A member of the RNA family "mir-130 microRNA precursor family" from Hucho hucho, 85 nucleotides long. For this family Rfam cites "Identification of tissue-specific microRNAs from mouse" (Lagos-Quintana et al., Curr Biol, 2002). Pairs were carried over by alignment from the consensus structure, which was predicted with PFOLD. NCBI's taxonomy places the organism under Eukaryota, Bilateria, Actinopteri, Clupeocephala, Hucho.
[Rfam]
RNA sequence: AAAUGGCACCCUGUUCCCUACAUAGUGCACUACUUUUUGGGUCUGGUCAAAAGCAGUGCACUAUGUAGGGAAUAGGGUCCCAUUU
Number, nucleotide and partner (000 for none) at each position: 001a085002a084003a083004u000005g080006g079007c000008a078009c077010c076011c075012u000013g073014u072015u071016c070017c069018c068019u067020a066021c000022a000023u063024a062025g061026u060027g059028c058029a057030c056031u055032a000033c000034u000035u000036u000037u000038u000039g000040g000041g000042u000043c000044u000045g000046g000047u000048c000049a000050a000051a000052a000053g000054c000055a031056g030057u029058g028059c027060a026061c025062u024063a023064u000065g000066u020067a019068g018069g017070g016071a015072a014073u013074a000075g011076g010077g009078u008079c006080c005081c000082a000083u003084u002085u001